[Rfam]
RNA sequence: UGCGUGCGGUCGCGGCGGGACGCGAUCCCGUCGAGGAAAGUCCGGGCACGGCAGGACACGGCGGUGGGCAAUCCCCACCGGGCGAGCCGGUGACGGCUCGCCAAGGGAAAGCGCCACAGAAAAGCCGGCGGGCACGCCGGCCGGUCGCGGGGUUCGAGCCCCGUGGUCGUACCGCCUCGAUGGGCUCGGGCCCGGGAAGGUAAGGGUGAAAAGGUGCGGCAAGAGCGCACCGGGCGUCGGGCGACCGACGCCGGCAAGGCAAGCCCCGCCGCGUGCAAGCCCAUGCAGCUCCCUCCGCCGAUCUCUCGGCGACCGCUGGUCCGGCGGGAACGGCAGCGUUCGGGGAGCGGGUCGGGUGCUCGAGGCCGUCGGCGACGGCGGCCCCAGAGGAAUGACCGCGUCGGGGGCUCGUUCCCCGGCAACAGAACCCGGCUUAUCGCGCAAC
Numbered sequence: 001u002g003c004g005u006g007c008g009g010u011c012g013c014g015g016c017g018g019g020a021c022g023c024g025a026u027c028c029c030g031u032c033g034a035g036g037a038a039a040g041u042c043c044g045g046g047c048a049c050g051g052c053a054g055g056a057c058a059c060g061g062c063g064g065u066g067g068g069c070a071a072u073c074c075c076c077a078c079c080g081g082g083c084g085a086g087c088c089g090g091u092g093a094c095g096g097c098u099c100g101c102c103a104a105g106g107g108a109a110a111g112c113g114c115c116a117c118a119g120a121a122a123a124g125c126c127g128g129c130g131g132g133c134a135c136g137c138c139g140g141c142c143g144g145u146c147g148c149g150g151g152g153u154u155c156g157a158g159c160c161c162c163g164u165g166g167u168c169g170u171a172c173c174g175c176c177u178c179g180a181u182g183g184g185c186u187c188g189g190g191c192c193c194g195g196g197a198a199g200g201u202a203a204g205g206g207u208g209a210a211a212a213g214g215u216g217c218g219g220c221a222a223g224a225g226c227g228c229a230c231c232g233g234g235c236g237u238c239g240g241g242c243g244a245c246c247g248a249c250g251c252c253g254g255c256a257a258g259g260c261a262a263g264c265c266c267c268g269c270c271g272c273g274u275g276c277a278a279g280c281c282c283a284u285g286c287a288g289c290u291c292c293c294u295c296c297g298c299c300g301a302u303c304u305c306u307c308g309g310c311g312a313c314c315g316c317u318g319g320u321c322c323g324g325c326g327g328g329a330a331c332g333g334c335a336g337c338g339u340u341c342g343g344g345g346a347g348c349g350g351g352u353c354g355g356g357u358g359c360u361c362g363a364g365g366c367c368g369u370c371g372g373c374g375a376c377g378g379c380g381g382c383c384c385c386a387g388a389g390g391a392a393u394g395a396c397c398g399c400g401u402c403g404g405g406g407g408c409u410c411g412u413u414c415c416c417c418g419g420c421a422a423c424a425g426a427a428c429c430c431g432g433c434u435u436a437u438c439g440c441g442c443a444a445c
Stems, first nucleotide, its partner, number of pairs: 001441003004437001005400007013033008038435003042432005047275004057333001059271005064078005079105001081102009106266002111264002113260003126205001128201002133196001135194002213231006232255001233252008279357004288348006328341005364383008